[Rfam]
Shown here is a 118-nucleotide RNA from Panicum miliaceum, a member of the family "Small nucleolar RNA Z278". The literature on the family includes a 2003 paper in Nucleic Acids Res by Chen et al., "The high diversity of snoRNAs in plants: identification and comparative study of 120 snoRNA genes from Oryza sativa". By type it is a C/D-box small nucleolar RNA. Rfam's curators write: snoZ278 is a C/D box small nucleolar RNA. Its methylation guide targets have not been reported. Taxonomically the source falls in Panicum sect. Panicum (Eukaryota, Embryophyta, Poales, Paniceae). The match comes from Rfam's covariance-model search (48 bits).
RNA sequence: GCCAUUGAUUGAGUCGCCCAAUAUCAGGACAGGGAAUUUGCUUCAAGGCCCUGUUUAUCAUGGCGAACCUACUUGAAGCUGCUGCACCAGCCAAAAGAAGAUCUGCCAAUUUUGAGGU
Numbered sequence: 001g002c003c004a005u006u007g008a009u010u011g012a013g014u015c016g017c018c019c020a021a022u023a024u025c026a027g028g029a030c031a032g033g034g035a036a037u038u039u040g041c042u043u044c045a046a047g048g049c050c051c052u053g054u055u056u057a058u059c060a061u062g063g064c065g066a067a068c069c070u071a072c073u074u075g076a077a078g079c080u081g082c083u084g085c086a087c088c089a090g091c092c093a094a095a096a097g098a099a100g101a102u103c104u105g106c107c108a109a110u111u112u113u114g115a116g117g118u
Stems, first nucleotide, its partner, number of pairs: 001118003049063002052060002